[Rfam]
RNA sequence: CCGAGGGAGCCAGGCGGCGGUUGCGCCAUGAACCCCGUCAGGCCCGAAAGGGAGCAGCGGUAGUGGUUGUUGCCGGGUGCCUGGUUCCUUCAAAAA
Numbered sequence: 001c002c003g004a005g006g007g008a009g010c011c012a013g014g015c016g017g018c019g020g021u022u023g024c025g026c027c028a029u030g031a032a033c034c035c036c037g038u039c040a041g042g043c044c045c046g047a048a049a050g051g052g053a054g055c056a057g058c059g060g061u062a063g064u065g066g067u068u069g070u071u072g073c074c075g076g077g078u079g080c081c082u083g084g085u086u087c088c089u090u091c092a093a094a095a096a
Stems, first nucleotide, its partner, number of pairs: 004090011015077001018075004025067005035060004043052003